The family of this 62-nucleotide RNA from Aquamicrobium lusatiense is "Fluoride riboswitch aptamer (crcB RNA motif)". The base pairs follow the family's consensus structure, which is taken from published work. Taxonomically the source falls in Aquamicrobium (Bacteria, Alphaproteobacteria, Hyphomicrobiales, Phyllobacteriaceae). A search with the family's covariance model found it, with a score of 52 bits.

RNA sequence: GCAUGAGAUGGGGAUGGAGCUCCCCGAAACCGCCGGAAACGGCUGAUGGCUCCUGUCGCGAU
Numbered sequence: 001g002c003a004u005g006a007g008a009u010g011g012g013g014a015u016g017g018a019g020c021u022c023c024c025c026g027a028a029a030c031c032g033c034c035g036g037a038a039a040c041g042g043c044u045g046a047u048g049g050c051u052c053c054u055g056u057c058g059c060g061a062u
Base pairs, nucleotide, nucleotide: 010025011024012023013022016053017052018051019050020049021048032043033042034041035040